[Rfam]
RNA sequence: GACUUUCUUCGCGGCGGAGCUCGACCGCCGCAACCGGUGAUCCUCGACUACAUCGACACUCACAAACAGGAGUACGGCGUCGAGCCGAUCUGCCGUGUGCUGUCCGCGCAUGGUUGCAAGAUCGCGCCG
Numbered sequence: 001g002a003c004u005u006u007c008u009u010c011g012c013g014g015c016g017g018a019g020c021u022c023g024a025c026c027g028c029c030g031c032a033a034c035c036g037g038u039g040a041u042c043c044u045c046g047a048c049u050a051c052a053u054c055g056a057c058a059c060u061c062a063c064a065a066a067c068a069g070g071a072g073u074a075c076g077g078c079g080u081c082g083a084g085c086c087g088a089u090c091u092g093c094c095g096u097g098u099g100c101u102g103u104c105c106g107c108g109c110a111u112g113g114u115u116g117c118a119a120g121a122u123c124g125c126g127c128c129g
Stems, first nucleotide, its partner, number of pairs: 013029005075129005086124002089121003092117002095114001
Overview:
A member of the RNA family "ALIL pseudoknot" from Mycolicibacterium austroafricanum, 129 nucleotides long. By type it is a cis-regulatory element. The family's consensus secondary structure is taken from published work.